Source information:
Shown here is a 130-nucleotide RNA, a member of the family "skipping-rope RNA".
RNA sequence: UUGUCGCGAGGUGAGAACGGCCUUCUCACGCCCCUUUGGUCAGAGAGAGGGAAAGUAGCUGGUUGCGGGUUUCCGUCUCCUUCCCCGCACUCCAGUGAAGAGGUCCGGGAGUGGCGACCCGGCGCGACAG
Numbered sequence: 001u002u003g004u005c006g007c008g009a010g011g012u013g014a015g016a017a018c019g020g021c022c023u024u025c026u027c028a029c030g031c032c033c034c035u036u037u038g039g040u041c042a043g044a045g046a047g048a049g050g051g052a053a054a055g056u057a058g059c060u061g062g063u064u065g066c067g068g069g070u071u072u073c074c075g076u077c078u079c080c081u082u083c084c085c086c087g088c089a090c091u092c093c094a095g096u097g098a099a100g101a102g103g104u105c106c107g108g109g110a111g112u113g114g115c116g117a118c119c120c121g122g123c124g125c126g127a128c129a130g
Stems, first nucleotide, its partner, number of pairs: 001130008011029005020115003031100001032051006105122005